[Rfam]
RNA sequence: GUCUCUGAUGAUGAUCAAAUAUAAACUUUCGUUCUUCUGAGAAUAAAUUUCAUGUGGAAUGCUUUAUGGAGACCUGAACUGAAGAGAC
Dot-bracket structure: ..((((............................................................................))))..